[Rfam]
RNA sequence: CUUCACGAGACAUGGCCUCCGCGCCCGCAGGGUGUGGAAAAGCUCCGACUGGCCAUGCACCAACCCCAAUGUUCGGCGGGUGGUUCGGAUGACGAAGCGGCCCGCGUCCAACCGGAGCGGGCAAGGACACUCA
Numbered sequence: 001c002u003u004c005a006c007g008a009g010a011c012a013u014g015g016c017c018u019c020c021g022c023g024c025c026c027g028c029a030g031g032g033u034g035u036g037g038a039a040a041a042g043c044u045c046c047g048a049c050u051g052g053c054c055a056u057g058c059a060c061c062a063a064c065c066c067c068a069a070u071g072u073u074c075g076g077c078g079g080g081u082g083g084u085u086c087g088g089a090u091g092a093c094g095a096a097g098c099g100g101c102c103c104g105c106g107u108c109c110a111a112c113c114g115g116a117g118c119g120g121g122c123a124a125g126g127a128c129a130c131u132c133a
Base pairs, nucleotide, nucleotide: 001097002096003095004094009058011057012056013055014054015053016052059084060083061082064080065079066078067076100122101121102120103119104118105117107116108115109114
A member of the RNA family "SAM (S-adenosyl methionine) riboswitch aptamer" from Arthrobacter sp. Edens01, 133 nucleotides long. SAM-IV is a mRNA element that regulates gene expression via direct sensing of S-adenosylmethionine (SAM or AdoMet). The organism belongs to Arthrobacter, within Bacteria. A search with the family's covariance model found it, with a score of 50 bits. The family's consensus secondary structure is taken from published work.